[Rfam]
RNA sequence: AUGCUGCUGCCAUGCGCUGCUGACAGCCGUCAGCACCAUGCCCUGGCAGCUCCGGUCUUCAAGGCUGCAACGCGGUUCGCCGCGUGGAUCGAACCAGUCCGCUUCGCAUCGCCCGCCGCGGACGAGCGUCUUCACGACGCCGGUGC
Numbered sequence: 001a002u003g004c005u006g007c008u009g010c011c012a013u014g015c016g017c018u019g020c021u022g023a024c025a026g027c028c029g030u031c032a033g034c035a036c037c038a039u040g041c042c043c044u045g046g047c048a049g050c051u052c053c054g055g056u057c058u059u060c061a062a063g064g065c066u067g068c069a070a071c072g073c074g075g076u077u078c079g080c081c082g083c084g085u086g087g088a089u090c091g092a093a094c095c096a097g098u099c100c101g102c103u104u105c106g107c108a109u110c111g112c113c114c115g116c117c118g119c120g121g122a123c124g125a126g127c128g129u130c131u132u133c134a135c136g137a138c139g140c141c142g143g144u145g146c
Stems, first nucleotide, its partner, number of pairs: 011040004019034006046068006054090004070085006118146003126140005

Notes: Shown here is a 146-nucleotide RNA sequence from Aromatoleum aromaticum, a member of the family "radC RNA". The sequence is in the family's curated seed alignment. The base pairs follow the family's consensus structure, which is taken from published work.